The record is a 139-nucleotide sequence from Escovopsis weberi, which matches "Small nucleolar RNA snR80" in Rfam. Gene Ontology terms of the family: RNA processing and nucleolus. The family's consensus secondary structure was predicted with WAR. It scores 41 bits against the family's covariance model. NCBI's taxonomy places the organism under Eukaryota, saccharomyceta, Pezizomycotina, Hypocreomycetidae, Escovopsis.

[Rfam]
RNA sequence: CAACCCUUGUCUCACUCUGAGGUGUACCAACUUCUCCGUGGUAUAUUUCUAUUUUUGUUCAAGGAAGAGGAAACCAUGUCGAUACUCACCACAACGCCCUUUUCCCGUGGGUGUGGUGGUCCAUCAAAACGUCAAACAU
Numbered sequence: 001c002a003a004c005c006c007u008u009g010u011c012u013c014a015c016u017c018u019g020a021g022g023u024g025u026a027c028c029a030a031c032u033u034c035u036c037c038g039u040g041g042u043a044u045a046u047u048u049c050u051a052u053u054u055u056u057g058u059u060c061a062a063g064g065a066a067g068a069g070g071a072a073a074c075c076a077u078g079u080c081g082a083u084a085c086u087c088a089c090c091a092c093a094a095c096g097c098c099c100u101u102u103u104c105c106c107g108u109g110g111g112u113g114u115g116g117u118g119g120u121c122c123a124u125c126a127a128a129a130c131g132u133c134a135a136a137c138a139u
Stems, first nucleotide, its partner, number of pairs: 007062003019049005025043004077134002080131001089119004094114006

The family has 6 seed sequences and 447 matches in Rfam 15.1.